[Rfam]
RNA sequence: GCAGACAAUACUCUGUUCUCUGCCGCUCACUCCAGCCUGGAACUUUUUAUGUCUGCUAAAUUAACAUGGAGAAUUCAACAACUCGCUGGCCUACUAUUAGGCUUGUGUUGGUAUGUUCUGCCACACUU
Numbered sequence: 001g002c003a004g005a006c007a008a009u010a011c012u013c014u015g016u017u018c019u020c021u022g023c024c025g026c027u028c029a030c031u032c033c034a035g036c037c038u039g040g041a042a043c044u045u046u047u048u049a050u051g052u053c054u055g056c057u058a059a060a061u062u063a064a065c066a067u068g069g070a071g072a073a074u075u076c077a078a079c080a081a082c083u084c085g086c087u088g089g090c091c092u093a094c095u096a097u098u099a100g101g102c103u104u105g106u107g108u109u110g111g112u113a114u115g116u117u118c119u120g121c122c123a124c125a126c127u128u
Stems, first nucleotide, its partner, number of pairs: 001056006015043005023035001025033001068119004073114002075111006085102003
RNA: Small nucleolar RNA SNORA77